[Rfam]
Background: The record is a 148-nucleotide RNA, which matches "DUF2800 RNA" in Rfam. The family's RNA type in Rfam is cis-regulatory element. The sequence is in the family's curated seed alignment.
RNA sequence: CUGCCGUAAAGCUCAUCCGCUGAUCACGGAUGAUUCCAGAGCAGAGCGGCAGACAACUGAACACAAAGCCAACGACUGGAAUAGUUGGCCAGCACUGAAAUGAGGAUUUCGUUUCGGUUGGCCAACUGCGCAUUCUUCCGGCUGCUCU
Numbered sequence: 001c002u003g004c005c006g007u008a009a010a011g012c013u014c015a016u017c018c019g020c021u022g023a024u025c026a027c028g029g030a031u032g033a034u035u036c037c038a039g040a041g042c043a044g045a046g047c048g049g050c051a052g053a054c055a056a057c058u059g060a061a062c063a064c065a066a067a068g069c070c071a072a073c074g075a076c077u078g079g080a081a082u083a084g085u086u087g088g089c090c091a092g093c094a095c096u097g098a099a100a101u102g103a104g105g106a107u108u109u110c111g112u113u114u115c116g117g118u119u120g121g122c123c124a125a126c127u128g129c130g131c132a133u134u135c136u137u138c139c140g141g142c143u144g145c146u147c148u
Stems, first nucleotide, its partner, number of pairs: 001052005007046001011042003014032005034081006067143004086124005099113005